RNA sequence: AGUGGGCCAUUUUUGGUAAGCAGAACUGGCGCUGUGGGAUGAACCAAACGCAGAGUUAAGGCGCCCAACUCGACGCUCAUGGGACACCAUGAAAGGCGUUGGUUGCUUAAGACAGCAGGACGGUGGCCAUGGAAGUCGGAAUCCGCUAAGGAGUGUGUAACAACUCACCUGCCGAAGCAACUAGCCCUGAAAAUGGAUGGCGCUGAAGCGUCGAGCCUAUACUCUGCCGUCAGCGGCAAGUGGGGCGGCGACGGGAGCGUUGCGCGCGUCGGACCGCGUUUGCGGCUCUCUCGCGAGGCAAUCGUCUCCCUCGAGUCGUCACGAAGCCCUGACGAGUA
Numbered sequence: 001a002g003u004g005g006g007c008c009a010u011u012u013u014u015g016g017u018a019a020g021c022a023g024a025a026c027u028g029g030c031g032c033u034g035u036g037g038g039a040u041g042a043a044c045c046a047a048a049c050g051c052a053g054a055g056u057u058a059a060g061g062c063g064c065c066c067a068a069c070u071c072g073a074c075g076c077u078c079a080u081g082g083g084a085c086a087c088c089a090u091g092a093a094a095g096g097c098g099u100u101g102g103u104u105g106c107u108u109a110a111g112a113c114a115g116c117a118g119g120a121c122g123g124u125g126g127c128c129a130u131g132g133a134a135g136u137c138g139g140a141a142u143c144c145g146c147u148a149a150g151g152a153g154u155g156u157g158u159a160a161c162a163a164c165u166c167a168c169c170u171g172c173c174g175a176a177g178c179a180a181c182u183a184g185c186c187c188u189g190a191a192a193a194u195g196g197a198u199g200g201c202g203c204u205g206a207a208g209c210g211u212c213g214a215g216c217c218u219a220u221a222c223u224c225u226g227c228c229g230u231c232a233g234c235g236g237c238a239a240g241u242g243g244g245g246c247g248g249c250g251a252c253g254g255g256a257g258c259g260u261u262g263c264g265c266g267c268g269u270c271g272g273a274c275c276g277c278g279u280u281u282g283c284g285g286c287u288c289u290c291u292c293g294c295g296a297g298g299c300a301a302u303c304g305u306c307u308c309c310c311u312c313g314a315g316u317c318g319u320c321a322c323g324a325a326g327c328c329c330u331g332a333c334g335a336g337u338a
Stems, first nucleotide, its partner, number of pairs: 006030004011025005035046003050227005056221001060217003071213001074210003094188003098185010115172005121145003127139002146150001151166001155164002228334006235328003